[Rfam]
This 175-nucleotide RNA sequence from Winslowiella iniecta belongs to the Rfam family "Manganese Mn2+ riboswitch aptamer (yybP-ykoY)". The pairing is the family consensus, mapped onto this sequence. From the family's description: This RNA was originally discovered in E. coli during a large scale screen and was named SraF. The family was later found to exist upstream of related families of protein genes in many bacteria, including the the yybP and ykoK genes in B. subtilis. The specific functions of these proteins are unknown, but this structured RNA element may be involved in their genetic regulation as a riboswitch. Lineage of the source: Bacteria > Pseudomonadota > Enterobacterales > Erwiniaceae > Winslowiella. Its family is annotated with manganese ion binding in the Gene Ontology.

RNA sequence: GCCAGCGUCAUUGGGGAGUAGCCGAUUUCUGACGCUUCGUCAGAAAUGCAUCUGUCAACAUACUCGUUUAGAUAUAAACGUGGCAGGUGCGGCCCGCAGCGGGAAGGCGAGACCAUAGACACGUGCCCAUGUAAGGUUGGGGAUGGCGCACGUGUAUAUGGAUGUCCCGGCCGGG
Numbered sequence: 001g002c003c004a005g006c007g008u009c010a011u012u013g014g015g016g017a018g019u020a021g022c023c024g025a026u027u028u029c030u031g032a033c034g035c036u037u038c039g040u041c042a043g044a045a046a047u048g049c050a051u052c053u054g055u056c057a058a059c060a061u062a063c064u065c066g067u068u069u070a071g072a073u074a075u076a077a078a079c080g081u082g083g084c085a086g087g088u089g090c091g092g093c094c095c096g097c098a099g100c101g102g103g104a105a106g107g108c109g110a111g112a113c114c115a116u117a118g119a120c121a122c123g124u125g126c127c128c129a130u131g132u133a134a135g136g137u138u139g140g141g142g143a144u145g146g147c148g149c150a151c152g153u154g155u156a157u158a159u160g161g162a163u164g165u166c167c168c169g170g171c172c173g174g175g
Base pairs, nucleotide, nucleotide: 026045027044048090049089050088051087052086053085054084055083056082057081065080066079067078068077069076097175